[Rfam]
RNA: SAM riboswitch aptamer (S box leader)
RNA sequence: AGCUCAUCGAGAGGGACUGAGGGAACGGCCCAGUGAAGUCCCGGCAACCGCCACGAGCCCCCUGACCCGGCCCCGCCGGAUCAGUCGUGGAAACGGUGCUAAUUCCGGCCCGCGGCGAGAUACGCCGUUGGGGAAGAUGAGAA
Numbered sequence: 001a002g003c004u005c006a007u008c009g010a011g012a013g014g015g016a017c018u019g020a021g022g023g024a025a026c027g028g029c030c031c032a033g034u035g036a037a038g039u040c041c042c043g044g045c046a047a048c049c050g051c052c053a054c055g056a057g058c059c060c061c062c063u064g065a066c067c068c069g070g071c072c073c074c075g076c077c078g079g080a081u082c083a084g085u086c087g088u089g090g091a092a093a094c095g096g097u098g099c100u101a102a103u104u105c106c107g108g109c110c111c112g113c114g115g116c117g118a119g120a121u122a123c124g125c126c127g128u129u130g131g132g133g134a135a136g137a138u139g140a141g142a143a
Base pairs, nucleotide, nucleotide: 003141004140005139006138007137008136013042014041015040016039017038021031022030023029026107027106028105043100044099045098046097048096049095052090104135109132110131111130112129